RNA: Bacterial large subunit ribosomal RNA, nucleotides 574 to 800
RNA sequence: GACUUAAUCUCAGUGGCAAGCUUAACCGAAUAGGGGAGGCGUAGCGAAAGCGAGUCUUAAUAGGGCGUUUAGUCGCUGGGAUUAGACCCGAAACCGGGCGAUCUAUCCAUGGCCAGGCUGAAGGUGGGGUAAUACUUACUGGAGGGCCGAACCCACGUAUGUUGAAAAAUGCGGGGAUGAGCUGUGGAUCGGAGUGAAAGGCUAAUCAAGCUCGGAGAUAGCUGGUU
Numbered sequence: 001g002a003c004u005u006a007a008u009c010u011c012a013g014u015g016g017c018a019a020g021c022u023u024a025a026c027c028g029a030a031u032a033g034g035g036g037a038g039g040c041g042u043a044g045c046g047a048a049a050g051c052g053a054g055u056c057u058u059a060a061u062a063g064g065g066c067g068u069u070u071a072g073u074c075g076c077u078g079g080g081a082u083u084a085g086a087c088c089c090g091a092a093a094c095c096g097g098g099c100g101a102u103c104u105a106u107c108c109a110u111g112g113c114c115a116g117g118c119u120g121a122a123g124g125u126g127g128g129g130u131a132a133u134a135c136u137u138a139c140u141g142g143a144g145g146g147c148c149g150a151a152c153c154c155a156c157g158u159a160u161g162u163u164g165a166a167a168a169a170u171g172c173g174g175g176g177a178u179g180a181g182c183u184g185u186g187g188a189u190c191g192g193a194g195u196g197a198a199a200g201g202c203u204a205a206u207c208a209a210g211c212u213c214g215g216a217g218a219u220a221g222c223u224g225g226u227u
Base pairs, nucleotide, nucleotide: 005084006083007082008081009080010079011078012077013076014075015074016073017072020040021039022038023037026034027033044051045050054066055065056064057063087225088224090222094215095214096213097212098211099210103191105189106188107187108186109185110184111183112182113181114179116148117147118146119145123140124139125138126137127136128135152176153175154174156173157172158171159170160169193203194202195201
Dot-bracket structure: ....(((((((((((((..((((..((.....))..))))...((....))..((((.....)))).....)))))))))))))..((.(...((((((...(.((((((((((.((((...((((((......))))))....))))...(((.(((((........))))))))..).))))))))).).(((.....)))......))))))......).))..